[Rfam]
RNA sequence: UAGACAGAUUAUUGUAUUCAACUGUAUUCACGGCGCAAUUCAUGGUCUAUUCAGUUGUUUUUAAACGGAAAGUGAAUCAAUUAACAUAAUAGACUCCU
Numbered sequence: 001u002a003g004a005c006a007g008a009u010u011a012u013u014g015u016a017u018u019c020a021a022c023u024g025u026a027u028u029c030a031c032g033g034c035g036c037a038a039u040u041c042a043u044g045g046u047c048u049a050u051u052c053a054g055u056u057g058u059u060u061u062u063a064a065a066c067g068g069a070a071a072g073u074g075a076a077u078c079a080a081u082u083a084a085c086a087u088a089a090u091a092g093a094c095u096c097c098u
Base pairs, nucleotide, nucleotide: 003096004095009092010091011090012089013088014087015086017084018083020082021081023079024078026077027076028075029074030073031072034067035066037060038059040057042055043054